The record is a 90-nucleotide RNA sequence from Alpharetrovirus avileu, which matches "Retrovirus direct repeat 1 (dr1)" in Rfam. Rfam's curators put it in the seed alignment. A reference for the family is Aschoff et al. (1999), "Point mutations in the avian sarcoma/leukosis virus 3' untranslated region result in a packaging defect", J Virol. By type it is a cis-regulatory element. About the family: This family represents the direct repeat 1 (dr1) element commonly found in the 3' UTR of Avian sarcoma, Rous sarcoma and Avian leukosis viruses (Alpharetroviruses and Avian type C retroviruses). dr1 is required for efficient viral replication and is thought to be involved in genomic RNA packaging although this may not be its only role. Rfam 15.1 lists 106 matches to the family in 14 species.

RNA sequence: UAUAACGGGGCGGGGCUUGGCCGAGGGGACUGUAACAUGUAUAGGCGAAAAGCGGGGCUGCGGUUAUACGCGGAUAGGAAUCCCCUCAGG
Numbered sequence: 001u002a003u004a005a006c007g008g009g010g011c012g013g014g015g016c017u018u019g020g021c022c023g024a025g026g027g028g029a030c031u032g033u034a035a036c037a038u039g040u041a042u043a044g045g046c047g048a049a050a051a052g053c054g055g056g057g058c059u060g061c062g063g064u065u066a067u068a069c070g071c072g073g074a075u076a077g078g079a080a081u082c083c084c085c086u087c088a089g090g
Stems, first nucleotide, its partner, number of pairs: 001012001003010001023087007031079001042076002046072002052067001054065002